The family of this 84-nucleotide sequence from Ensifer fredii is "DUF3800-VII RNA".
The family's RNA type in Rfam is small RNA.
[Rfam]
RNA sequence: GGCAGCCAUGCGCCGGAACAACCCAGAGCACUCGAAAGACUGCAGGCGAGAGAUCGCAAUUAUGGGCCGGGGGGCUGCCGCUUU
Numbered sequence: 001g002g003c004a005g006c007c008a009u010g011c012g013c014c015g016g017a018a019c020a021a022c023c024c025a026g027a028g029c030a031c032u033c034g035a036a037a038g039a040c041u042g043c044a045g046g047c048g049a050g051a052g053a054u055c056g057c058a059a060u061u062a063u064g065g066g067c068c069g070g071g072g073g074g075c076u077g078c079c080g081c082u083u084u
Stems, first nucleotide, its partner, number of pairs: 001079007011071001013070004022066004028043003032039002047056003

Lineage of the source: Bacteria > Pseudomonadati > Pseudomonadota > Hyphomicrobiales > Ensifer fredii.